Record summary: The record is an 82-nucleotide RNA sequence from Neomesorhizobium albiziae, which matches "tRNA" in Rfam. Rfam classes the family as a transfer RNA. The source organism's lineage runs through Bacteria, Pseudomonadati, Alphaproteobacteria, Hyphomicrobiales and Neomesorhizobium. The family is grouped with related families in Rfam's "tRNA clan".

RNA sequence: GCGGAUGUGGCGGAAUUGGUAGACGCCCUGGAUUUAGGUUCCAGUGCCGAGAGGCGUGUAGGUUCGACUCCUAUCAUCCGCA
Numbered sequence: 001g002c003g004g005a006u007g008u009g010g011c012g013g014a015a016u017u018g019g020u021a022g023a024c025g026c027c028c029u030g031g032a033u034u035u036a037g038g039u040u041c042c043a044g045u046g047c048c049g050a051g052a053g054g055c056g057u058g059u060a061g062g063u064u065c066g067a068c069u070c071c072u073a074u075c076a077u078c079c080g081c082a
Base pairs, nucleotide, nucleotide: 001081002080003079004078005077006076007075010026011025012024028044029043030042031041032040058074059073060072061071062070